[Rfam]
RNA: dinG RNA
RNA sequence: AAUGAUACUCCUGCGUUCGGCGCAGCUCGCAAUUGUGUAGGCGAGAUAUAGGGUUUCCGACUGGAAUUUAUGUCGGUUAACUUAUAU
Numbered sequence: 001a002a003u004g005a006u007a008c009u010c011c012u013g014c015g016u017u018c019g020g021c022g023c024a025g026c027u028c029g030c031a032a033u034u035g036u037g038u039a040g041g042c043g044a045g046a047u048a049u050a051g052g053g054u055u056u057c058c059g060a061c062u063g064g065a066a067u068u069u070a071u072g073u074c075g076g077u078u079a080a081c082u083u084a085u086a087u
Base pairs, nucleotide, nucleotide: 011025012024013023014022015021026045027044028043029042030041046087047086048085049084050083051082054079057076058075059074060073061072